[Rfam]
RNA sequence: UAAGUAGGACAGACAAUCGCGGCUGCAGGCGCCGAAAGGCCGCAGACGAGGAAAGUCCGGGCUUCACAGGGCAGGAUGCCGGAUAACGUCCGGUGGAGGUGACUCCAAGGCCAGUGCAACAGAAAUAAACCGCCGCGGGCACACUUUUCGGAGCAGUCCGGGAAGUACGGCCUGCGGUAAGGGUGGAAAGGCAGUGUAAGAGACUACCGCCCUGGUGGUAACAGCAGGGGCACAUGUAAACCCCAUCCGAAGCAAGACCGAGAAGAGGCAUUGUGGCGGCCCGUCACGCUUCAGGUAGGUCGCUCGAGCACGGCGGUAACGCCGCGCCUAGACAGAUGAUUGUCCAACGACAUAACCCGGCUUAUCGUCCUGCUUGACAC
Numbered sequence: 001u002a003a004g005u006a007g008g009a010c011a012g013a014c015a016a017u018c019g020c021g022g023c024u025g026c027a028g029g030c031g032c033c034g035a036a037a038g039g040c041c042g043c044a045g046a047c048g049a050g051g052a053a054a055g056u057c058c059g060g061g062c063u064u065c066a067c068a069g070g071g072c073a074g075g076a077u078g079c080c081g082g083a084u085a086a087c088g089u090c091c092g093g094u095g096g097a098g099g100u101g102a103c104u105c106c107a108a109g110g111c112c113a114g115u116g117c118a119a120c121a122g123a124a125a126u127a128a129a130c131c132g133c134c135g136c137g138g139g140c141a142c143a144c145u146u147u148u149c150g151g152a153g154c155a156g157u158c159c160g161g162g163a164a165g166u167a168c169g170g171c172c173u174g175c176g177g178u179a180a181g182g183g184u185g186g187a188a189a190g191g192c193a194g195u196g197u198a199a200g201a202g203a204c205u206a207c208c209g210c211c212c213u214g215g216u217g218g219u220a221a222c223a224g225c226a227g228g229g230g231c232a233c234a235u236g237u238a239a240a241c242c243c244c245a246u247c248c249g250a251a252g253c254a255a256g257a258c259c260g261a262g263a264a265g266a267g268g269c270a271u272u273g274u275g276g277c278g279g280c281c282c283g284u285c286a287c288g289c290u291u292c293a294g295g296u297a298g299g300u301c302g303c304u305c306g307a308g309c310a311c312g313g314c315g316g317u318a319a320c321g322c323c324g325c326g327c328c329u330a331g332a333c334a335g336a337u338g339a340u341u342g343u344c345c346a347a348c349g350a351c352a353u354a355a356c357c358c359g360g361c362u363u364a365u366c367g368u369c370c371u372g373c374u375u376g377a378c379a380c
Stems, first nucleotide, its partner, number of pairs: 001376010011365001012344007020048002023045004028040001053363003057360005062252004069282004074248005079093005094108001095106004109243002114241002116237003130182002132178009190208002193205003209231001210229005216223002256301004266291004273287005308327002311324005
Dot-bracket structure: ((((((((((((((((((.((.((((.(...........).)))).))....[[[.[[[[[((((...[[[[.((((((((((.....)))))(((((....)))).)((...(((((...........(((((((((((.............................)))))))))..)).......((.(((.......))).))((((((.((....)).))))).)...)))..)))))))))))))...((((......((((...(((((.]]]])))))))))......))))......((.(((((....))))).))..........)))))))...........]]]]]]]].).))))))))))....
The family of this 380-nucleotide RNA from Lachnoclostridium sp. An169 is "Bacterial RNase P class A". Pairs were carried over by alignment from the consensus structure, which is taken from published work. Lineage of the source: Bacteria > Bacillati > Clostridia > Lachnospiraceae > Lachnoclostridium. The match comes from Rfam's covariance-model search (296 bits).